RNA: Bacterial RNase P class A
RNA sequence: GCGGGGAAACUCCUGGUCGCGCCUGACCUGCUUUUUCGGCAGGGAAGGUGAGGAAAGUCCGGGCACCGCAGGGCAAGGAUGCCAGCUAACGGCUGGUCGGCGAGCCGAGCGUCCGCCUGAGUGCCGCAAGCAGGCGGAAAGCGGCGAAGUCGAAGGACAGUGCCACAGAAACCAGACCGCCACCCCACACAGGCCCCGGCGCGGGCGCGGGUGGUCAGGGUGAAACGGUGCGGUAAGAGCGCACCAGGUUCCCGGGAGACCGGGAGCGUCUGGUCAACCCCAUCCGGUGCAAGACCCGACAGUGCGGCGAGGGCGGCCCGCCCGUUUGAGCCGCCAGGAUGGUCGCUUGAGGCGUCCUGGCAACAGGCGUCCCAGACAGAUGAUCAGGCUGCCCCAGGGCCAACCCUCUGGGGCAGACAGAACCCGGCUUACCGUUUCCCCGUGCCA
Numbered sequence: 001g002c003g004g005g006g007a008a009a010c011u012c013c014u015g016g017u018c019g020c021g022c023c024u025g026a027c028c029u030g031c032u033u034u035u036u037c038g039g040c041a042g043g044g045a046a047g048g049u050g051a052g053g054a055a056a057g058u059c060c061g062g063g064c065a066c067c068g069c070a071g072g073g074c075a076a077g078g079a080u081g082c083c084a085g086c087u088a089a090c091g092g093c094u095g096g097u098c099g100g101c102g103a104g105c106c107g108a109g110c111g112u113c114c115g116c117c118u119g120a121g122u123g124c125c126g127c128a129a130g131c132a133g134g135c136g137g138a139a140a141g142c143g144g145c146g147a148a149g150u151c152g153a154a155g156g157a158c159a160g161u162g163c164c165a166c167a168g169a170a171a172c173c174a175g176a177c178c179g180c181c182a183c184c185c186c187a188c189a190c191a192g193g194c195c196c197c198g199g200c201g202c203g204g205g206c207g208c209g210g211g212u213g214g215u216c217a218g219g220g221u222g223a224a225a226c227g228g229u230g231c232g233g234u235a236a237g238a239g240c241g242c243a244c245c246a247g248g249u250u251c252c253c254g255g256g257a258g259a260c261c262g263g264g265a266g267c268g269u270c271u272g273g274u275c276a277a278c279c280c281c282a283u284c285c286g287g288u289g290c291a292a293g294a295c296c297c298g299a300c301a302g303u304g305c306g307g308c309g310a311g312g313g314c315g316g317c318c319c320g321c322c323c324g325u326u327u328g329a330g331c332c333g334c335c336a337g338g339a340u341g342g343u344c345g346c347u348u349g350a351g352g353c354g355u356c357c358u359g360g361c362a363a364c365a366g367g368c369g370u371c372c373c374a375g376a377c378a379g380a381u382g383a384u385c386a387g388g389c390u391g392c393c394c395c396a397g398g399g400c401c402a403a404c405c406c407u408c409u410g411g412g413g414c415a416g417a418c419a420g421a422a423c424c425c426g427g428c429u430u431a432c433c434g435u436u437u438c439c440c441c442g443u444g445c446c447a
Base pairs, nucleotide, nucleotide: 001443002442003441004440005439006438007437008436009435010434012388013387014386015385016384017383018382020050021049022048023047024046027043028042029041030040031039055430056429057428059427060426061425062424063423064289065288066287067286072323073322077285078284079283080282081281082096083095084094085093086092097154098152099151100150101149155280156279160278161277162274163273164272177219178218179215180214181213182212183211184210185209227245228244229243230242231241232240247269248267249266250265251264252263253262254261255260293344294343295342296341304334305333306332307331308330314328315327316326318324351371352370353369354368356367357366358365359364